Record summary
Shown here is an 83-nucleotide RNA sequence from Rhinolophus ferrumequinum, a member of the family "Small nucleolar RNA SNORD121A". The family's consensus secondary structure was predicted with WAR.

RNA sequence: ACUGGAAGACAGCGAUGCUUUAUAUUUCUAAGCACAUAUCUGAGUUGUAUGUGUGGAUGUUACUAAAACUGAGUCUUUUCUGC
Number, nucleotide and partner (000 for none) at each position: 001a000002c082003u000004g080005g079006a078007a076008g075009a074010c073011a000012g000013c000014g000015a000016u000017g000018c000019u000020u000021u000022a000023u000024a000025u000026u000027u000028c000029u000030a000031a000032g000033c000034a000035c000036a000037u000038a000039u000040c000041u000042g000043a000044g000045u000046u000047g000048u000049a000050u000051g000052u000053g000054u000055g000056g000057a000058u000059g000060u000061u000062a000063c000064u000065a000066a000067a000068a000069c000070u000071g000072a000073g010074u009075c008076u007077u000078u006079u005080c004081u000082g002083c000
Rfam links the family to the GO terms nucleolus and RNA processing.